[Rfam]
RNA sequence: AGACGAUAAUACUAAACCACCUGUGAAGGUGGGGCGGAAAGCCUAUUGGGUCUCCAGGAGACAGCCGGGUUGCCGAA
Numbered sequence: 001a002g003a004c005g006a007u008a009a010u011a012c013u014a015a016a017c018c019a020c021c022u023g024u025g026a027a028g029g030u031g032g033g034g035c036g037g038a039a040a041g042c043c044u045a046u047u048g049g050g051u052c053u054c055c056a057g058g059a060g061a062c063a064g065c066c067g068g069g070u071u072g073c074c075g076a077a
Base pairs, nucleotide, nucleotide: 012037013036017032018031019030020029021028022027040071041070042069043068047067048066049065050062051061052060053059054058